[Rfam]
RNA sequence: GUUCGAUAAUGGCAAACUUGCCGAAAGGUAAGGACGCAAAGCCGAGGGUCUACGGUUCCUAUGGAACUACGACAGCCUGGUUACCGAA
Numbered sequence: 001g002u003u004c005g006a007u008a009a010u011g012g013c014a015a016a017c018u019u020g021c022c023g024a025a026a027g028g029u030a031a032g033g034a035c036g037c038a039a040a041g042c043c044g045a046g047g048g049u050c051u052a053c054g055g056u057u058c059c060u061a062u063g064g065a066a067c068u069a070c071g072a073c074a075g076c077c078u079g080g081u082u083a084c085c086g087a088a
Stems, first nucleotide, its partner, number of pairs: 012037002017032006040082004045078003048073003055067004
The family of this 88-nucleotide sequence from Paenibacillus silvestris is "c-di-GMP-I riboswitch aptamer".
Pairs were carried over by alignment from the consensus structure, which is taken from published work.